This 107-nucleotide RNA sequence from Ligilactobacillus ruminis belongs to the Rfam family "DUF3800-I RNA". Rfam describes the family as follows. Actinobacteria, Firmicutes, Fusobacteria, Proteobacteria (1 example), Tenericutes (2 examples).
RNA sequence: ACAUAUUGUAGGUAGAGAUACGCUGUAUACUCGUGGAAAUCGAAUUAACGUUUAAGCGGUAUGUGCUACCGUUGAACCACGAGCCGCCUUUUCAGGUCAUUUUUUUA
Numbered sequence: 001a002c003a004u005a006u007u008g009u010a011g012g013u014a015g016a017g018a019u020a021c022g023c024u025g026u027a028u029a030c031u032c033g034u035g036g037a038a039a040u041c042g043a044a045u046u047a048a049c050g051u052u053u054a055a056g057c058g059g060u061a062u063g064u065g066c067u068a069c070c071g072u073u074g075a076a077c078c079a080c081g082a083g084c085c086g087c088c089u090u091u092u093c094a095g096g097u098c099a100u101u102u103u104u105u106u107a
Base pairs, nucleotide, nucleotide: 007027008026009025010024011023012021013020014019030083031082032081033080034079035078040075041074042073043052044051045050056072057071058070059069060068061067086097087096088095089094